Soft rot Enterobacteriaceae Rev 39 5'UTR: a 299-nucleotide RNA sequence from Shimwellia blattae. Taxonomically the source falls in Shimwellia blattae (Bacteria, Gammaproteobacteria, Enterobacterales, Enterobacteriaceae).
Nucleotides: 299
Base pairs, nucleotide, nucleotide: 006032007031008030009029012026013024016021037075038074041071044066045065046064048062049058050057085251086250087249089246090245091244093239094238097235101234102232103231105229106228107227109119110118111117121141122140123139124138125137127136128135129134143160146157147156148155162190163189170184171183172182192225195224196223197222198221199220200219201218202217203216205214206213207212252286253285254284255283256282257281260274261273
Number, partner (000 for none) and nucleotide at each position: 001000a002000a003000a004000u005000c006032u007031u008030g009029u010000g011000u012026u013024g014000u015000u016021u017000g018000u019000u020000a021016a022000c023000u024013c025000u026012g027000u028000g029009a030008u031007a032006a033000c034000u035000c036000u037075u038074u039000a040000g041071g042000c043000a044066u045065u046064c047000c048062u049058u050057c051000g052000a053000a054000c055000a056000a057050g058049a059000c060000g061000u062048a063000a064046g065045a066044a067000c068000a069000u070000a071041c072000a073000g074038a075037a076000a077000a078000u079000g080000a081000c082000a083000g084000c085251c086250c087249u088000c089246c090245u091244a092000c093239u094238a095000g096000u097235g098000a099000u100000u101234a102232g103231c104000c105229u106228g107227g108000u109119c110118g111117u112000g113000a114000u115000u116000a117111g118110c119109g120000u121141g122140g123139u124138g125137g126000u127136g128135a129134u130000u131000a132000u133000u134129a135128u136127c137125c138124c139123a140122c141121c142000g143160u144000g145000c146157g147156g148155g149000g150000c151000u152000g153000c154000a155148c156147u157146u158000c159000g160143a161000g162190g163189a164000g165000a166000a167000a168000a169000g170184g171183c172182u173000u174000a175000g176000a177000a178000a179000u180000c181000a182172a183171g184170c185000u186000g187000a188000a189163u190162c191000a192225a193000c194000g195224a196223a197222a198221c199220c200219c201218c202217c203216g204000c205214a206213c207212c208000g209000a210000a211000a212207g213206g214205u215000c216203c217202g218201g219200g220199g221198g222197u223196u224195u225192u226000u227107u228106u229105a230000u231103g232102u233000u234101u235097c236000g237000a238094u239093a240000a241000a242000a243000c244091u245090g246089g247000c248000g249087a250086g251085g252286a253285g254284c255283a256282g257281a258000u259000a260274u261273g262000a263000c264000a265000a266000g267000u268000u269000g270000c271000a272000g273261c274260a275000c276000a277000a278000a279000a280000u281257u282256c283255u284254g285253u286252u287000u288000u289000c290000c291000g292000c293000a294000a295000a296000c297000u298000a299000a
Background: The family's consensus secondary structure was predicted with RNAfold. Gene Ontology term of the family: cellular response to starvation. For this family Rfam cites "Discovery and profiling of small RNAs responsive to stress conditions in the plant pathogen Pectobacterium atrosepticum" (Kwenda et al., BMC Genomics, 2016). From the family's description: From bacteria cultured under starvation conditions.